[Rfam]
RNA sequence: GCCAUAUGAUGUUUUCUUUUCGAAAGGUGAGCGCUUUGCGCAGUGAUGACCCUCAUCUAUCACCCUUGACUGAUGGCU
Numbered sequence: 001g002c003c004a005u006a007u008g009a010u011g012u013u014u015u016c017u018u019u020u021c022g023a024a025a026g027g028u029g030a031g032c033g034c035u036u037u038g039c040g041c042a043g044u045g046a047u048g049a050c051c052c053u054c055a056u057c058u059a060u061c062a063c064c065c066u067u068g069a070c071u072g073a074u075g076g077c078u
Stems, first nucleotide, its partner, number of pairs: 001077004031041004